[Rfam]
Record summary:
Shown here is a 46-nucleotide RNA from Albula glossodonta, a member of the family "Histone 3' UTR stem-loop". The literature on the family includes a 1999 paper in Gene by Dominski and Marzluff, "Formation of the 3' end of histone mRNA". From the family's description: The mRNAs of metazoan histone genes lack a poly-A tail. 3' end processing occurs at a site between a highly conserved stem-loop (modelled by this family) and a purine rich region around 20 nts downstream (the histone downstream element, or HDE). The stem-loop is bound by a 31 kDa stem-loop binding protein (SLBP - also termed the histone hairpin binding protein, or HBP).

RNA sequence: CCAAAGGCUCUUUUAAGAGCCACCCAUCUCUUCUGUUUAAAAGUAG
Dot-bracket structure: .....((((((....)))))).........................